[Rfam]
RNA sequence: GGCCCGGCUCUUGCUCAUGGAACAUCGACGGUAACCAAAGGCGGUUGCCCCCUUACACGACAAAGGCGUCGC
Numbered sequence: 001g002g003c004c005c006g007g008c009u010c011u012u013g014c015u016c017a018u019g020g021a022a023c024a025u026c027g028a029c030g031g032u033a034a035c036c037a038a039a040g041g042c043g044g045u046u047g048c049c050c051c052c053u054u055a056c057a058c059g060a061c062a063a064a065g066g067c068g069u070c071g072c
Base pairs, nucleotide, nucleotide: 030049031048032047033046034045035044036043